[Rfam]
RNA sequence: UAGAAUAAUAUAGAUAAGGGAAGUUAGUAAAAUAGAUCUGUAACUUUAGGAAAAGGAUUAGCUCUAAGGGUUAGGUACGUUAGGCCUUAGGGAGAAGCCUCUAGCGCAGAAGGGCACUAACUACAAGGUAGGCGCCUCUUAGCGCUAGGGUGCAGAUACCCUUAGCAGGUUUCAGCUGUCUAGCGUAUAUUUAACAACUAACUUAGAACUAGUAUAGAUAAGGGGAAUCUAACUAUCUAAUUAAAAUAUAGCAUUAUAAUAGCUAGAAAGUAGUAUUAAUAUAAUGUAAUUUCUGCCUAGUGCUCUAAAUAUUAAAGCAAAGAGAUUUAACUAAGCGCGGGUAAACAGUAGGAGUAACUAUAACUCUCUUAAGGUAGCUAAAUACCUUGUUAUCUAAUUAGUAACGCGCAUAAAUAGAUUAAUAAGAUUCCUACUAUCCCUAUCUACUAUCUAGUAAAACUAUAGCUAAGGGAAUAGGCUUAGCUAA
Number, nucleotide and partner (000 for none) at each position: 001u453002a452003g451004a450005a000006u000007a000008a000009u000010a000011u446012a445013g444014a443015u442016a441017a000018g439019g438020g437021a000022a000023g000024u000025u000026a000027g000028u000029a000030a000031a000032a000033u000034a000035g059036a058037u057038c056039u055040g000041u000042a000043a000044c049045u000046u000047u000048a000049g044050g000051a000052a000053a000054a000055g039056g038057a037058u036059u035060a210061g209062c000063u207064c206065u205066a204067a203068g202069g199070g198071u197072u196073a000074g000075g188076u187077a186078c185079g184080u183081u182082a181083g180084g166085c165086c000087u000088u000089a000090g160091g159092g000093a000094g000095a000096a000097g153098c152099c000100u150101c148102u147103a146104g145105c144106g143107c142108a000109g140110a139111a000112g137113g136114g135115c134116a000117c132118u131119a000120a129121c128122u127123a000124c000125a000126a000127g122128g121129u120130a000131g118132g117133c000134g115135c114136c113137u112138c000139u110140u109141a000142g107143c106144g105145c104146u103147a102148g101149g000150g100151u000152g098153c097154a000155g000156a000157u000158a000159c091160c090161c000162u000163u000164a000165g085166c084167a000168g000169g000170u000171u000172u000173c000174a000175g000176c000177u000178g000179u000180c083181u082182a081183g080184c079185g078186u077187a076188u075189a000190u000191u000192u000193a000194a000195c000196a072197a071198c070199u069200a000201a000202c068203u067204u066205a065206g064207a063208a000209c061210u060211a215212g000213u000214a000215u211216a000217g000218a000219u000220a000221a000222g000223g432224g431225g430226a429227a428228u427229c426230u424231a423232a000233c000234u248235a247236u246237c000238u000239a000240a000241u000242u000243a000244a000245a000246a236247u235248a234249u000250a000251g287252c286253a285254u284255u283256a282257u281258a280259a000260u000261a000262g274263c273264u272265a271266g000267a000268a000269a000270g000271u265272a264273g263274u262275a000276u000277u000278a000279a000280u258281a257282u256283a255284a254285u253286g252287u251288a000289a000290u000291u418292u417293c000294u000295g349296c348297c000298u000299a000300g346301u345302g342303c341304u340305c339306u000307a000308a000309a000310u337311a000312u335313u000314a000315a000316a000317g000318c000319a328320a327321a326322g000323a000324g000325a000326u321327u320328u319329a000330a000331c000332u000333a000334a000335g312336c000337g310338c000339g305340g304341g303342u302343a000344a000345a301346c300347a000348g296349u295350a000351g367352g366353a365354g364355u363356a000357a000358c000359u000360a000361u000362a000363a355364c354365u353366c352367u351368c000369u373370u000371a000372a000373g369374g000375u000376a000377g000378c000379u000380a000381a000382a000383u000384a000385c000386c000387u000388u000389g405390u404391u403392a402393u401394c000395u000396a000397a000398u000399u000400a000401g393402u392403a391404a390405c389406g000407c000408g000409c000410a000411u000412a000413a000414a000415u000416a000417g292418a291419u000420u000421a000422a000423u231424a230425a000426g229427a228428u227429u226430c225431c224432u223433a000434c000435u000436a000437u020438c019439c018440c000441u016442a015443u014444c013445u012446a011447c000448u000449a000450u004451c003452u002453a001454g000455u000456a000457a000458a000459a000460c000461u000462a000463u000464a000465g000466c483467u482468a481469a480470g479471g000472g000473a000474a000475u000476a000477g000478g000479c470480u469481u468482a467483g466484c000485u000486a000487a000

Description
The family of this 487-nucleotide part of an RNA from Plenodomus lingam is "Eukaryotic large subunit ribosomal RNA". Rfam's curators put it in the seed alignment. The base pairs follow the family's consensus structure, which is taken from published work.